[Rfam]
Small nucleolar RNA Z40: a 72-nucleotide sequence from Acipenser ruthenus. The family's consensus secondary structure was predicted with PFOLD. NCBI's taxonomy places the organism under Eukaryota, Metazoa, Teleostomi, Chondrostei, Acipenser. Gene Ontology terms of the family: RNA processing and nucleolus. Rfam 15.1 lists 615 matches to the family in 541 species. For this family Rfam cites "The high diversity of snoRNAs in plants: identification and comparative study of 120 snoRNA genes from Oryza sativa" (Chen et al., Nucleic Acids Res, 2003).

RNA sequence: UGCUGUUAUGAUGAAUGGCAAACUGUUCAACUGCUCUGACAGUGAAUGAUGACUUGUGCCUUUCUGAACACG
Numbered sequence: 001u002g003c004u005g006u007u008a009u010g011a012u013g014a015a016u017g018g019c020a021a022a023c024u025g026u027u028c029a030a031c032u033g034c035u036c037u038g039a040c041a042g043u044g045a046a047u048g049a050u051g052a053c054u055u056g057u058g059c060c061u062u063u064c065u066g067a068a069c070a071c072g
Stems, first nucleotide, its partner, number of pairs: 002071001004070003